[Rfam]
RNA sequence: UGCAAGUAUUUUACGAUUAAGAAGCAACUGUCUCUUGUACA
Number, nucleotide and partner (000 for none) at each position: 001u000002g000003c000004a000005a000006g000007u000008a000009u000010u000011u000012u000013a000014c000015g000016a000017u000018u037019a036020a035021g034022a033023a000024g031025c030026a000027a000028c000029u000030g025031u024032c000033u022034c021035u020036u019037g018038u000039a000040c000041a000
RNA: Plastid-rps18 3UTR RNA